[Rfam]
RNA sequence: GGCCUCCCUCUGUGGGGUGAUCGAUCGUGGGGCUCUGCGAUUGAUUGCCCCGCAGAGGGAGGUC
Numbered sequence: 001g002g003c004c005u006c007c008c009u010c011u012g013u014g015g016g017g018u019g020a021u022c023g024a025u026c027g028u029g030g031g032g033c034u035c036u037g038c039g040a041u042u043g044a045u046u047g048c049c050c051c052g053c054a055g056a057g058g059g060a061g062g063u064c
Stems, first nucleotide, its partner, number of pairs: 001064030